A member of the RNA family "T-box leader" from Gracilibacillus halotolerans, 207 nucleotides long. The family's consensus secondary structure is taken from published work. Uncharged tRNA acts as the effector for transcription antitermination of genes in the T-box leader family. T-boxes are found upstream of many aminoacyl-tRNA synthetase genes and some amino acid biosynthetic genes usually in Gram-positive bacteria. The anticodon of a specific tRNA base pairs to a specifier sequence within the T-box motif, and the NCCA acceptor tail of the tRNA base pairs to a conserved bulge in the T-box antiterminator hairpin.

[Rfam]
RNA sequence: AUGAAAGUGAUGAUAGGAAAUAGUAGCUUUUUAUUCAUACUUCAGAGAGCUAGUGGUAGGUGGAAACUAGUGUAUGAGAAAAGUGAAUCCAUCCUGGAGUAGUACAUGAUAGAAGUGUACUCGGAUGCAACCCGUUAUUGUUGCUUGAGCCGGAGGAGCUUGUCUCUUCAAUUAGGGUGGUAUCGCGGGUUUACUCUCGUCCCUUUA
Numbered sequence: 001a002u003g004a005a006a007g008u009g010a011u012g013a014u015a016g017g018a019a020a021u022a023g024u025a026g027c028u029u030u031u032u033a034u035u036c037a038u039a040c041u042u043c044a045g046a047g048a049g050c051u052a053g054u055g056g057u058a059g060g061u062g063g064a065a066a067c068u069a070g071u072g073u074a075u076g077a078g079a080a081a082a083g084u085g086a087a088u089c090c091a092u093c094c095u096g097g098a099g100u101a102g103u104a105c106a107u108g109a110u111a112g113a114a115g116u117g118u119a120c121u122c123g124g125a126u127g128c129a130a131c132c133c134g135u136u137a138u139u140g141u142u143g144c145u146u147g148a149g150c151c152g153g154a155g156g157a158g159c160u161u162g163u164c165u166c167u168u169c170a171a172u173u174a175g176g177g178u179g180g181u182a183u184c185g186c187g188g189g190u191u192u193a194c195u196c197u198c199g200u201c202c203c204u205u206u207a
Stems, first nucleotide, its partner, number of pairs: 007100002015095004026084006038074003049071006101121007122134003153169006174204004185200005
Dot-bracket structure: ......((......((((.......((((((......(((........((((((...........)))))))))....)))))).......))))...))(((((((.......)))))))(((.......)))..................((((((.....))))))....((((.......(((((......)))))))))...
Lineage of the source: Bacteria > Bacilli > Caryophanales > Bacillaceae > Gracilibacillus. The literature on the family includes a 2003 paper in J Mol Biol by Gerdeman et al., "Solution structure of the Bacillus subtilis T-box antiterminator RNA: seven nucleotide bulge characterized by stacking and flexibility".